[Rfam]
RNA sequence: AUGGUUAGAAAUCAACUCAGGUCAUCGCCGCAAUGGGAUGACGGAUGAGCUGCGACGCCGGCAGCAGCUCCACUGGUAGAACCAUUACUACCAGGCCUCGACCUGAGGCGAAGAGGACAUAACAGUCAAC
Numbered sequence: 001a002u003g004g005u006u007a008g009a010a011a012u013c014a015a016c017u018c019a020g021g022u023c024a025u026c027g028c029c030g031c032a033a034u035g036g037g038a039u040g041a042c043g044g045a046u047g048a049g050c051u052g053c054g055a056c057g058c059c060g061g062c063a064g065c066a067g068c069u070c071c072a073c074u075g076g077u078a079g080a081a082c083c084a085u086u087a088c089u090a091c092c093a094g095g096c097c098u099c100g101a102c103c104u105g106a107g108g109c110g111a112a113g114a115g116g117a118c119a120u121a122a123c124a125g126u127c128a129a130c
Stems, first nucleotide, its partner, number of pairs: 021042006028036002047070007075092005095109005
Dot-bracket structure: ....................((((((.((.....))))))))....(((((((..........)))))))....(((((........)))))..(((((.....))))).....................
The record is a 130-nucleotide RNA from Zestomonas carbonaria, which matches "rmf RNA" in Rfam. The source organism's lineage runs through Bacteria, Pseudomonadati, Gammaproteobacteria, Pseudomonadaceae and Zestomonas. By type it is a cis-regulatory element.